SAH (S-adenosyl-L-homocysteine) riboswitch aptamer: a 122-nucleotide RNA from Dyella thiooxydans. The base pairs follow the family's consensus structure, which is taken from published work.
RNA sequence: CCCGUCGAGGGGCGCUGCGACCACAGGCAGGCGGAAUACCGCCAUUCCGUCCGGUUAUCCGAACCGGGAAGCACCGGUGGCCAGGCUCGACGCGGCAGGUUCGAAAACGGCGCCCGGUUGCU
Numbered sequence: 001c002c003c004g005u006c007g008a009g010g011g012g013c014g015c016u017g018c019g020a021c022c023a024c025a026g027g028c029a030g031g032c033g034g035a036a037u038a039c040c041g042c043c044a045u046u047c048c049g050u051c052c053g054g055u056u057a058u059c060c061g062a063a064c065c066g067g068g069a070a071g072c073a074c075c076g077g078u079g080g081c082c083a084g085g086c087u088c089g090a091c092g093c094g095g096c097a098g099g100u101u102c103g104a105a106a107a108c109g110g111c112g113c114c115c116g117g118u119u120g121c122u
Stems, first nucleotide, its partner, number of pairs: 003092006021080004026075001
Taxonomically the source falls in Dyella (Bacteria, Pseudomonadati, Pseudomonadota, Lysobacterales).